[Rfam]
RNA: U1A polyadenylation inhibition element (PIE)
Organism: Takifugu rubripes
RNA sequence: UCACAAAGCAUUGCACCCAGAAUCUGGUUUGCCAGACAUUGUACCUGGAGCUUUUUCUCUUUAUAUUAAAACGUUA
Numbered sequence: 001u002c003a004c005a006a007a008g009c010a011u012u013g014c015a016c017c018c019a020g021a022a023u024c025u026g027g028u029u030u031g032c033c034a035g036a037c038a039u040u041g042u043a044c045c046u047g048g049a050g051c052u053u054u055u056u057c058u059c060u061u062u063a064u065a066u067u068a069a070a071a072c073g074u075u076a
Stems, first nucleotide, its partner, number of pairs: 005054005017048004023036004